[Rfam]
RNA sequence: CUUAAAUGAAGACCUCCUAACUUUAUUUAAGCACCUCAAAAAACAUUUUUCAUCAUAAUCUCCCAAAGUCACCCAAUUCGGUGGCUUUUUU
Numbered sequence: 001c002u003u004a005a006a007u008g009a010a011g012a013c014c015u016c017c018u019a020a021c022u023u024u025a026u027u028u029a030a031g032c033a034c035c036u037c038a039a040a041a042a043a044c045a046u047u048u049u050u051c052a053u054c055a056u057a058a059u060c061u062c063c064c065a066a067a068g069u070c071a072c073c074c075a076a077u078u079c080g081g082u083g084g085c086u087u088u089u090u091u
Stems, first nucleotide, its partner, number of pairs: 001031011065088009